The record is a 110-nucleotide sequence from Coffea canephora, which matches "Small nucleolar RNA Z107/R87" in Rfam. The base pairs follow the family's consensus structure, which was predicted with RNAfold. By type it is a C/D-box small nucleolar RNA. The source organism's lineage runs through Eukaryota, Tracheophyta, Euphyllophyta, Gunneridae and Coffea.

Nucleotides: 110
Base pairs, nucleotide, nucleotide: 001110002109003108004107005106006105
Number, partner (000 for none) and nucleotide at each position: 001110g002109a003108u004107c005106g006105c007000u008000g009000u010000g011000a012000c013000g014000a015000c016000u017000c018000a019000c020000a021000a022000a023000u024000u025000u026000u027000c028000a029000a030000g031000c032000u033000c034000a035000a036000c037000a038000g039000a040000c041000c042000g043000g044000a045000a046000a047000g048000c049000g050000g051000g052000u053000u054000u055000c056000u057000u058000u059000a060000u061000a062000u063000u064000u065000c066000u067000a068000u069000g070000g071000a072000g073000a074000u075000u076000c077000u078000c079000g080000c081000g082000u083000g084000u085000c086000g087000a088000u089000a090000a091000c092000c093000c094000c095000g096000c097000u098000g099000a100000a101000c102000c103000g104000a105006g106005c107004g108003a109002u110001c